A member of the RNA family "GlmZ RNA activator of glmS mRNA" from Serratia proteamaculans, 220 nucleotides long. Clan: Glm clan. Rfam classes the family as a small RNA. Rfam's curators write: This RNA was discovered in E. coli during a large scale screen. The sraJ gene was expressed in early logarithmic phase, but its level decreased with cell growth.
RNA sequence: GUAGAUGCUCAUUCCACCUCUUAUGUUUGCCUUAGGCUUCAUAAACCCUGGGAAUGACGCAGAGCCGAUUUAAGGUGCCUAUUGCCCACCAGAACGAUGUCAGCGUUGCUUGCAGCCGCAGACAUCACACUCCGGGCAUAACGUUGAGUGAGGCACCGCCCCUGUUGUCCUAGACCUGAUUGCUUUUUUAUACACUUGCCACCGCGGCAAGUGUUUUUUU
Numbered sequence: 001g002u003a004g005a006u007g008c009u010c011a012u013u014c015c016a017c018c019u020c021u022u023a024u025g026u027u028u029g030c031c032u033u034a035g036g037c038u039u040c041a042u043a044a045a046c047c048c049u050g051g052g053a054a055u056g057a058c059g060c061a062g063a064g065c066c067g068a069u070u071u072a073a074g075g076u077g078c079c080u081a082u083u084g085c086c087c088a089c090c091a092g093a094a095c096g097a098u099g100u101c102a103g104c105g106u107u108g109c110u111u112g113c114a115g116c117c118g119c120a121g122a123c124a125u126c127a128c129a130c131u132c133c134g135g136g137c138a139u140a141a142c143g144u145u146g147a148g149u150g151a152g153g154c155a156c157c158g159c160c161c162c163u164g165u166u167g168u169c170c171u172a173g174a175c176c177u178g179a180u181u182g183c184u185u186u187u188u189u190a191u192a193c194a195c196u197u198g199c200c201a202c203c204g205c206g207g208c209a210a211g212u213g214u215u216u217u218u219u220u
Stems, first nucleotide, its partner, number of pairs: 001065002006061003009057004015052001017051001019043001027036001074157007084137004096126006167175003192214009